Shown here is a 226-nucleotide RNA sequence from Phreatobacter aquaticus, a member of the family "Alphaproteobacterial sRNA ar45". Rfam classes the family as a small RNA. The literature on the family includes a 2012 paper in RNA Biol by del Val et al., "A survey of sRNA families in alpha-proteobacteria".
[Rfam]
RNA sequence: GCCCAAUUUCGCACGUGCCUGUGGUUGCGUGCCGGUUGGUGGGCAUUCGGACAAGAGGCCGAACAGCCGCCCGAAGACUUGGGAAUGCGCCGGAGAUCUGCCGGGCCGUGUUCCAGGGGCGUCGCAAGACGCGGGGUCUUCGAUACCUAACCGGCAGCCGGAGGCAAACCGGCGAACUCUGCCCUCCGCAGAGGACGCGACUUGAAGCAACGACGAUCGGGCUUUU
Numbered sequence: 001g002c003c004c005a006a007u008u009u010c011g012c013a014c015g016u017g018c019c020u021g022u023g024g025u026u027g028c029g030u031g032c033c034g035g036u037u038g039g040u041g042g043g044c045a046u047u048c049g050g051a052c053a054a055g056a057g058g059c060c061g062a063a064c065a066g067c068c069g070c071c072c073g074a075a076g077a078c079u080u081g082g083g084a085a086u087g088c089g090c091c092g093g094a095g096a097u098c099u100g101c102c103g104g105g106c107c108g109u110g111u112u113c114c115a116g117g118g119g120c121g122u123c124g125c126a127a128g129a130c131g132c133g134g135g136g137u138c139u140u141c142g143a144u145a146c147c148u149a150a151c152c153g154g155c156a157g158c159c160g161g162a163g164g165c166a167a168a169c170c171g172g173c174g175a176a177c178u179c180u181g182c183c184c185u186c187c188g189c190a191g192a193g194g195a196c197g198c199g200a201c202u203u204g205a206a207g208c209a210a211c212g213a214c215g216a217u218c219g220g221g222c223u224u225u226u
Base pairs, nucleotide, nucleotide: 001222002221003220004219009213010212011211016209017208018207023202024201025200026199027198028197029196030195031155032154033153034152035151038147039146040145041144164182165181166180168178183194184193185192186191